[Rfam]
RNA sequence: UGUAUGAUGCGCAAGCCAGCCCCCGUUAAGACCUUAUGGCACGGUGGCAGCGUGCAGCCUGGCUGCAUCUGAAUCAUCAUCCGGUUAAG
Numbered sequence: 001u002g003u004a005u006g007a008u009g010c011g012c013a014a015g016c017c018a019g020c021c022c023c024c025g026u027u028a029a030g031a032c033c034u035u036a037u038g039g040c041a042c043g044g045u046g047g048c049a050g051c052g053u054g055c056a057g058c059c060u061g062g063c064u065g066c067a068u069c070u071g072a073a074u075c076a077u078c079a080u081c082c083g084g085u086u087a088a089g
Base pairs, nucleotide, nucleotide: 015051016050019048020047021046023044024043025042026041052068053067054066055065056064057063

Overview:
This 89-nucleotide RNA sequence from Erwinia mallotivora belongs to the Rfam family "Peptidase-S11 RNA". It scores 43 bits against the family's covariance model. Pairs were carried over by alignment from the consensus structure, which is taken from published work. Rfam classes the family as a cis-regulatory element. The source organism's lineage runs through Bacteria, Pseudomonadati, Pseudomonadota, Enterobacterales and Erwinia.